[Rfam]
RNA sequence: UUAGUUUCAUAAGAGUCUUUUCGUAUAUAUGCAGGAAUAAGGCCUGCGCGUUUCUACCGAGCUACCGUAAAUGGCUUGACUACGAUUAAUCAACCUGCAGUU
Number, nucleotide and partner (000 for none) at each position: 001u000002u000003a000004g000005u000006u000007u000008c000009a000010u000011a000012a000013g000014a000015g000016u000017c000018u088019u000020u000021u085022c084023g083024u082025a081026u000027a000028u000029a000030u048031g047032c046033a045034g044035g043036a000037a000038u000039a000040a000041g000042g000043c035044c034045u033046g032047c031048g030049c000050g000051u000052u000053u000054c000055u000056a000057c000058c078059g077060a076061g075062c074063u073064a072065c000066c000067g000068u000069a000070a000071a000072u064073g063074g062075c061076u060077u059078g058079a000080c000081u025082a024083c023084g022085a021086u000087u000088a018089a000090u000091c000092a000093a000094c000095c000096u000097g000098c000099a000100g000101u000102u000